[Rfam]
RNA sequence: CCAUUUUUGCCUUUGGUAACCUAGCUUUAUGAAAUAUUAAAUGAAAUCAUACAGCUAGAUAACCAAAGACAAAACUAG
Numbered sequence: 001c002c003a004u005u006u007u008u009g010c011c012u013u014u015g016g017u018a019a020c021c022u023a024g025c026u027u028u029a030u031g032a033a034a035u036a037u038u039a040a041a042u043g044a045a046a047u048c049a050u051a052c053a054g055c056u057a058g059a060u061a062a063c064c065a066a067a068g069a070c071a072a073a074a075c076u077a078g
Base pairs, nucleotide, nucleotide: 001078003076005074007072008071009070011068012067013066014065015064016063017062019060021058022057023056024055025054026053028051029050030049031048032047
RNA: mir-9/mir-79 microRNA precursor family
Organism: Magallana gigas